This 79-nucleotide RNA sequence from Muraenolepis orangiensis belongs to the Rfam family "Small nucleolar RNA SNORD83". Rfam classes the family as a C/D-box small nucleolar RNA.
RNA sequence: GCCAAAUGAUGAUCUAUAUAGAUGGCAUGAGCACAAUGUGCGAAGAUGACCAACUAUCUAUCACCCAUGACUGAUGGCU
Number, nucleotide and partner (000 for none) at each position: 001g078002c077003c076004a075005a000006a000007u000008g000009a000010u000011g000012a000013u000014c000015u000016a000017u000018a000019u000020a000021g000022a000023u000024g000025g000026c000027a000028u000029g000030a000031g041032c040033a039034c038035a000036a000037u000038g034039u033040g032041c031042g000043a000044a000045g000046a000047u000048g000049a000050c000051c000052a000053a000054c000055u000056a000057u000058c000059u000060a000061u000062c000063a000064c000065c000066c000067a000068u000069g000070a000071c000072u000073g000074a000075u004076g003077g002078c001079u000
Description:
The family's consensus secondary structure was predicted with PFOLD.